[Rfam]
RNA sequence: GCGUUUUUUAGCGGUAUUAGGGUCCAGUUGCAUAAAGCCCCGAUAUAUCGGGGUUUUUUGUUAUUUGGCAACAGAACUACUGGGCUAUUAAGCCCUUUUUUU
Numbered sequence: 001g002c003g004u005u006u007u008u009u010a011g012c013g014g015u016a017u018u019a020g021g022g023u024c025c026a027g028u029u030g031c032a033u034a035a036a037g038c039c040c041c042g043a044u045a046u047a048u049c050g051g052g053g054u055u056u057u058u059u060g061u062u063a064u065u066u067g068g069c070a071a072c073a074g075a076a077c078u079a080c081u082g083g084g085c086u087a088u089u090a091a092g093c094c095c096u097u098u099u100u101u102u
Stems, first nucleotide, its partner, number of pairs: 034057009082095004

Rfam assigns this 102-nucleotide RNA from Brenneria rubrifaciens to the family "Gammaprotebacteria rimP leader". The base pairs follow the family's consensus structure, which is taken from published work. Rfam links the family to the GO term regulation of gene expression. The match comes from Rfam's covariance-model search (99 bits).